[Rfam]
RNA sequence: UCAUCAAGAACCUUUUGAAUCAAAUAGUACAAUGAUUCAAAAGGUUCUCACAA
Numbered sequence: 001u002c003a004u005c006a007a008g009a010a011c012c013u014u015u016u017g018a019a020u021c022a023a024a025u026a027g028u029a030c031a032a033u034g035a036u037u038c039a040a041a042a043g044g045u046u047c048u049c050a051c052a053a
Stems, first nucleotide, its partner, number of pairs: 007048016

The family of this 53-nucleotide sequence from Raphanus sativus is "Plastid-ccsA-ndhD-2 3UTR RNA". Rfam's curators write: Plastid ccsA-ndhD-2 is a non-coding RNA (ncRNA) recognised in plastids. It was found in the three prime untranslated region (3UTR) of ccsA and ndhD genes, its 3UTR location suggests a role in transcript maturation. A reference for the family is Richter et al. (2023), "Retrograde signaling in plants: A critical review focusing on the GUN pathway and beyond", Plant Commun. The family's consensus secondary structure was predicted with LocARNA.